[Rfam]
Rfam assigns this 119-nucleotide RNA sequence from Dyadobacter psychrotolerans to the family "Group II catalytic intron D1-D4-2". The family has 144 seed sequences and 1,231 matches in Rfam 15.1. The pairing is the family consensus, mapped onto this sequence. Rfam describes the family as follows. Group II introns are found in rRNA, tRNA and mRNA of organelles in fungi, plants and protists, and also in mRNA in bacteria. The literature on the family includes a 2001 paper in EMBO J by Chu et al., "Control of branch-site choice by a group II intron". Its family is annotated with Group II intron splicing in the Gene Ontology.
RNA sequence: GAGGGAAGGCCCCUCGAAGUCUGGGUACAGGCCCUGGCUUCAAACCACCACGAGCUGCUAAGAUCAAAAGUCUUGGUAGUGAGCGUCGUUGGAAAAGGCAUAAAAAAAAAAUGUCAGGU
Numbered sequence: 001g002a003g004g005g006a007a008g009g010c011c012c013c014u015c016g017a018a019g020u021c022u023g024g025g026u027a028c029a030g031g032c033c034c035u036g037g038c039u040u041c042a043a044a045c046c047a048c049c050a051c052g053a054g055c056u057g058c059u060a061a062g063a064u065c066a067a068a069a070g071u072c073u074u075g076g077u078a079g080u081g082a083g084c085g086u087c088g089u090u091g092g093a094a095a096a097g098g099c100a101u102a103a104a105a106a107a108a109a110a111a112u113g114u115c116a117g118g119u
Stems, first nucleotide, its partner, number of pairs: 001015005016041006023034004046118001048092002050089004054080002057077003061073004097115005
Dot-bracket structure: (((((.....)))))((((((.((((....)))).))))))....(.((((((((.(((.((((.....)))).))).)).....)))).))....(((((.........)))))..).